[Rfam]
RNA sequence: UCUAGAACUCCAGAUAUGGGCUGAACACUGAAUAGUGUUUGGGCUGCAGGACAGCUUUCGGACUUCUCCGUUGUUGCUAUUAUUUGGACUUGAAACGGCCUUCUUAAGAUCUUGAUGUCCAAAUGAAAGUUGUAGGCCUAUGUCUUAUCAAAUCUCUGUA
Numbered sequence: 001u002c003u004a005g006a007a008c009u010c011c012a013g014a015u016a017u018g019g020g021c022u023g024a025a026c027a028c029u030g031a032a033u034a035g036u037g038u039u040u041g042g043g044c045u046g047c048a049g050g051a052c053a054g055c056u057u058u059c060g061g062a063c064u065u066c067u068c069c070g071u072u073g074u075u076g077c078u079a080u081u082a083u084u085u086g087g088a089c090u091u092g093a094a095a096c097g098g099c100c101u102u103c104u105u106a107a108g109a110u111c112u113u114g115a116u117g118u119c120c121a122a123a124u125g126a127a128a129g130u131u132g133u134a135g136g137c138c139u140a141u142g143u144c145u146u147a148u149c150a151a152a153u154c155u156c157u158g159u160a
Base pairs, nucleotide, nucleotide: 003158004157005156006155009150012145013144014143015142016141017140018139019138020137021135022134023133025131027130028129029128035124036123041120042119043118045115048112049111050110052108054105060100061099063098064097069092070091073089074088075087

Rfam assigns this 160-nucleotide RNA from Populus tomentosa to the family "MIR2912 microRNA precursor family". The source organism's lineage runs through Eukaryota, Streptophytina, Spermatophyta, Mesangiospermae and Populus.